[Rfam]
RNA: Alphaproteobacterial sRNA BjrC1505
Nucleotides: 150
Stems, first nucleotide, its partner, number of pairs: 001043002005014001016036001020035006048062003071089006095108004121144008
Number, partner (000 for none) and nucleotide at each position: 001043u002042u003000u004000u005014g006000c007000g008000u009000u010000a011000a012000c013000c014005u015000g016036a017000a018000g019000u020035u021034a022033a023032g024031g025030u026000u027000u028000c029000u030025a031024u032023u033022u034021u035020a036016u037000g038000a039000c040000u041000u042002g043001g044000u045000c046000c047000a048062u049061c050060c051000a052000g053000u054000g055000u056000u057000u058000c059000u060050g061049g062048a063000c064000u065000u066000u067000g068000u069000c070000u071089g072088a073087g074086u075085g076084g077000u078000u079000c080000u081000g082000u083000c084076c085075c086074a087073c088072u089071c090000u091000g092000u093000u094000u095108g096107a097106c098105g099000c100000c101000u102000c103000c104000c105098u106097g107096u108095c109000a110000u111000c112000a113000c114000a115000g116000a117000c118000u119000u120000u121144g122143g123142a124141g125140c126139c127138g128137c129000g130000a131000u132000u133000u134000u135000g136000a137128g138127c139126g140125g141124c142123u143122c144121u145000u146000u147000u148000u149000u150000u